[Rfam]
RNA sequence: UGGUAAGGGCAGGGGUUUCUUUCGGCCUCCAGCAGCAUUGACGGUUGUAGGCCGGCGGAAACUACUUGCUUUCGCCA
Numbered sequence: 001u002g003g004u005a006a007g008g009g010c011a012g013g014g015g016u017u018u019c020u021u022u023c024g025g026c027c028u029c030c031a032g033c034a035g036c037a038u039u040g041a042c043g044g045u046u047g048u049a050g051g052c053c054g055g056c057g058g059a060a061a062c063u064a065c066u067u068g069c070u071u072u073c074g075c076c077a
Stems, first nucleotide, its partner, number of pairs: 006072003010068004014063007022055007030047003
RNA: mir-2796 microRNA precursor family
Organism: Phyllotreta striolata